[Rfam]
Shown here is a 53-nucleotide RNA from Halorhabdus utahensis, a member of the family "leuA-Halobacteria RNA".
By type it is a cis-regulatory element.
Rfam's curators put it in the seed alignment.
RNA sequence: GACGAGCGAGGAUAGAGGAAGUCGCCGCAAGGCGACUGGGCGCGAAAUUCUCC
Numbered sequence: 001g002a003c004g005a006g007c008g009a010g011g012a013u014a015g016a017g018g019a020a021g022u023c024g025c026c027g028c029a030a031g032g033c034g035a036c037u038g039g040g041c042g043c044g045a046a047a048u049u050c051u052c053c
Stems, first nucleotide, its partner, number of pairs: 020037007